[Rfam]
RNA sequence: ACCUCCUCUUUCUGUCCCGUAUCCUCUACGCAUCCAUAGGGUAAUGGGUCCUGGUAUGGAGAAGAUAAAGCCUUCAAACGCGGUGGCCUACUUUGAUACAUCGGGUCAUUUGCGUGGGGAGGAUCGUGUCUACUGAGACCCAUAACUUCACGGUCGGGCUCGCACUUCUCUGUGUGUUGAUGACUGCGGGUCUUGGAGACUACAUCC
Numbered sequence: 001a002c003c004u005c006c007u008c009u010u011u012c013u014g015u016c017c018c019g020u021a022u023c024c025u026c027u028a029c030g031c032a033u034c035c036a037u038a039g040g041g042u043a044a045u046g047g048g049u050c051c052u053g054g055u056a057u058g059g060a061g062a063a064g065a066u067a068a069a070g071c072c073u074u075c076a077a078a079c080g081c082g083g084u085g086g087c088c089u090a091c092u093u094u095g096a097u098a099c100a101u102c103g104g105g106u107c108a109u110u111u112g113c114g115u116g117g118g119g120a121g122g123a124u125c126g127u128g129u130c131u132a133c134u135g136a137g138a139c140c141c142a143u144a145a146c147u148u149c150a151c152g153g154u155c156g157g158g159c160u161c162g163c164a165c166u167u168c169u170c171u172g173u174g175u176g177u178u179g180a181u182g183a184c185u186g187c188g189g190g191u192c193u194u195g196g197a198g199a200c201u202a203c204a205u206c207c
Stems, first nucleotide, its partner, number of pairs: 003061004016048004020043006071122005078115005083109006128200004134195008